[Rfam]
Annotation: Shown here is a 96-nucleotide sequence, a member of the family "Glutamine riboswitch aptamer (glnA leader)". Gene Ontology term of the family: glutamine binding.
RNA sequence: AUCGUUCAUUCUCGCAACGAGAACGGAAGUAAGAAACCUGAAAACCUCUCACUUUCUGUGAGGCUAGUUAACCGAAAGUUUCCGAAGGAACGCAUG
Numbered sequence: 001a002u003c004g005u006u007c008a009u010u011c012u013c014g015c016a017a018c019g020a021g022a023a024c025g026g027a028a029g030u031a032a033g034a035a036a037c038c039u040g041a042a043a044a045c046c047u048c049u050c051a052c053u054u055u056c057u058g059u060g061a062g063g064c065u066a067g068u069u070a071a072c073c074g075a076a077a078g079u080u081u082c083c084g085a086a087g088g089a090a091c092g093c094a095u096g
Stems, first nucleotide, its partner, number of pairs: 003092005009023005026093001033082005
The sequence is in the family's curated seed alignment.
A reference for the family is Ames and Breaker (2011), "Bacterial aptamers that selectively bind glutamine", RNA Biol.